Lysine riboswitch aptamer: a 178-nucleotide sequence from Paucilactobacillus oligofermentans.
Lineage of the source: Bacteria > Bacillota > Lactobacillales > Lactobacillaceae > Paucilactobacillus oligofermentans.
About the family: Riboswitches are metabolite binding domains within certain messenger RNAs that serve as precision sensors for their corresponding targets.
The base pairs follow the family's consensus structure, which is taken from published work.
RNA sequence: AUCGAAAGAAGAGGUUGCAUGACUCAUCAUUAGGUAGUCUUAGACGGAAUAAGCGUUGGAGGAUUAUCGAAAGGGUGCCAUGCCGAAAUGGAAGGCUACUUAUUUUAGUAUUCUGUUGGGCCCUGGUUUAAUAAAUCAGGGACUGUCGCAAUGAUAAUUGCGGGGCGCUAUCGACGAU
Numbered sequence: 001a002u003c004g005a006a007a008g009a010a011g012a013g014g015u016u017g018c019a020u021g022a023c024u025c026a027u028c029a030u031u032a033g034g035u036a037g038u039c040u041u042a043g044a045c046g047g048a049a050u051a052a053g054c055g056u057u058g059g060a061g062g063a064u065u066a067u068c069g070a071a072a073g074g075g076u077g078c079c080a081u082g083c084c085g086a087a088a089u090g091g092a093a094g095g096c097u098a099c100u101u102a103u104u105u106u107a108g109u110a111u112u113c114u115g116u117u118g119g120g121c122c123c124u125g126g127u128u129u130a131a132u133a134a135a136u137c138a139g140g141g142a143c144u145g146u147c148g149c150a151a152u153g154a155u156a157a158u159u160g161c162g163g164g165g166c167g168c169u170a171u172c173g174a175c176g177a178u
Stems, first nucleotide, its partner, number of pairs: 008171001010169002017083005023077001025075001033068008087117007095109004118144002121141008146163007